[Rfam]
RNA sequence: AAAAUGAGCCGCGGGAGCUCACGGCAAGUGGGCUGAGAGGGCGACUGACGAGAGCGUCGCCGACCGCUGAACCUGACUCGGGUAAUUCCGGCGUAGGGAGGAAGCGCAUGUACGAC
Numbered sequence: 001a002a003a004a005u006g007a008g009c010c011g012c013g014g015g016a017g018c019u020c021a022c023g024g025c026a027a028g029u030g031g032g033c034u035g036a037g038a039g040g041g042c043g044a045c046u047g048a049c050g051a052g053a054g055c056g057u058c059g060c061c062g063a064c065c066g067c068u069g070a071a072c073c074u075g076a077c078u079c080g081g082g083u084a085a086u087u088c089c090g091g092c093g094u095a096g097g098g099a100g101g102a103a104g105c106g107c108a109u110g111u112a113c114g115a116c
Base pairs, nucleotide, nucleotide: 009101010100011067012066013065014064017033018032019031020030021029040061041060042059043058044057072097073096074095075094078091079090080089081088

Background: Rfam assigns this 116-nucleotide RNA sequence from Kribbella turkmenica to the family "TPP riboswitch aptamer (THI element)". NCBI's taxonomy places the organism under Bacteria, Bacillati, Actinomycetota, Propionibacteriales, Kribbella.